RNA sequence: CUUGGAAGCUGCUGGGACCAGUCGUGGGCUAAAGUAAAUACCUUUUUGCCCACUGUUGCAGUCUUCCUAGAGCAAAGUGGAGGUCUCUGUCUGCUUUAGGACAGCCAACUAAACCGGAUCGUUCCCCUCCAUACACA
Numbered sequence: 001c002u003u004g005g006a007a008g009c010u011g012c013u014g015g016g017a018c019c020a021g022u023c024g025u026g027g028g029c030u031a032a033a034g035u036a037a038a039u040a041c042c043u044u045u046u047u048g049c050c051c052a053c054u055g056u057u058g059c060a061g062u063c064u065u066c067c068u069a070g071a072g073c074a075a076a077g078u079g080g081a082g083g084u085c086u087c088u089g090u091c092u093g094c095u096u097u098a099g100g101a102c103a104g105c106c107a108a109c110u111a112a113a114c115c116g117g118a119u120c121g122u123u124c125c126c127c128u129c130c131a132u133a134c135a136c137a
Stems, first nucleotide, its partner, number of pairs: 004067003008062005024053006034045001036043001079130005087121001089119003093115001095113005
RNA: Small Cajal body specific RNA 3
Organism: Sclerurus mexicanus